The record is an 85-nucleotide sequence from Caenorhabditis japonica, which matches "mir-85 microRNA precursor family" in Rfam. NCBI's taxonomy places the organism under Eukaryota, Opisthokonta, Protostomia, Rhabditomorpha, Caenorhabditis. It scores 68 bits against the family's covariance model. The base pairs follow the family's consensus structure, which was predicted with RNAalifold.

RNA sequence: UCCGGGAGCCCGGCUUUUCAUUUGUUUGAAACCAGCCAAGACGAGUAUGGUGGUUACAAAGUAUUUGAAAAGUCGUGCUCUGGAA
Number, nucleotide and partner (000 for none) at each position: 001u000002c000003c083004g000005g081006g080007a079008g078009c077010c000011c075012g074013g073014c072015u071016u070017u069018u068019c067020a065021u000022u063023u000024g000025u060026u059027u058028g057029a000030a055031a054032c053033c052034a051035g000036c000037c000038a000039a000040g000041a000042c000043g000044a000045g000046u000047a000048u000049g000050g000051u034052g033053g032054u031055u030056a000057c028058a027059a026060a025061g000062u000063a022064u000065u020066u000067g019068a018069a017070a016071a015072g014073u013074c012075g011076u000077g009078c008079u007080c006081u005082g000083g003084a000085a000